[Rfam]
RNA sequence: CCCCUCUGGCAAUGGACAAAGAGACACCUUGUUGCCAGUAUUGUUCUUAUAUCAGUCAGGGCAGAGCAGUUGGCAGUCCUUUGUUCAUCCUAGCUUGAUGCCUGGCUUGGUGUCCAAAGCUGUUUUAUGCCUAGGACCCAUAA
Dot-bracket structure: (..(((((....(((...(((.((.((..........)).))...)))...)))..)))))..)..................((((..........(.(...(((..((...(....)..))..))).).)..))))......

Rfam assigns this 143-nucleotide RNA from Mus musculus to the family "Small nucleolar RNA SNORA48".
The organism belongs to Mus, within Eukaryota.
It is annotated as an H/ACA-box small nucleolar RNA.
It scores 58 bits against the family's covariance model.
Rfam links the family to the GO terms RNA processing and nucleolus.
Clan: SNORA48 clan.
The snoRNA ACA 48 has been identified to guide pseudouridylation of the residue U3797 in the 28S rRNA subunit.
The family's consensus secondary structure was predicted with RNAalifold.